[Rfam]
Rfam assigns this 78-nucleotide RNA from Taxus chinensis to the family "Small nucleolar RNA SNORD34". Rfam describes the family as follows. snoRNA U34 is found in intron 5 of the ribosomal protein L13a gene in humans. The base pairs follow the family's consensus structure, which was predicted with PFOLD. The match comes from Rfam's covariance-model search (40 bits).

RNA sequence: UUGGCCGGGGAUUAUUAAUAAUAUUACCUACAUUGUCUGAUGUAAUCUGUGAUUUUUUUCAAAAGUUCUGAGGCCAAA
Numbered sequence: 001u002u003g004g005c006c007g008g009g010g011a012u013u014a015u016u017a018a019u020a021a022u023a024u025u026a027c028c029u030a031c032a033u034u035g036u037c038u039g040a041u042g043u044a045a046u047c048u049g050u051g052a053u054u055u056u057u058u059u060c061a062a063a064a065g066u067u068c069u070g071a072g073g074c075c076a077a078a
Base pairs, nucleotide, nucleotide: 001077003075004074005073006072